This 67-nucleotide RNA from Frankia casuarinae belongs to the Rfam family "Transposase-2 RNA". The family's RNA type in Rfam is small RNA. The base pairs follow the family's consensus structure, which is taken from published work. Taxonomically the source falls in Frankia (Bacteria, Bacillati, Actinomycetes, Frankiales).

RNA sequence: GAAGCGGGAACCCGGCACGGCUUCGGCCGGUCAGACCUAUGCCGCCUCGCCGAGAGGCGAGGCGGCA
Numbered sequence: 001g002a003a004g005c006g007g008g009a010a011c012c013c014g015g016c017a018c019g020g021c022u023u024c025g026g027c028c029g030g031u032c033a034g035a036c037c038u039a040u041g042c043c044g045c046c047u048c049g050c051c052g053a054g055a056g057g058c059g060a061g062g063c064g065g066c067a
Stems, first nucleotide, its partner, number of pairs: 014037002018029004044063008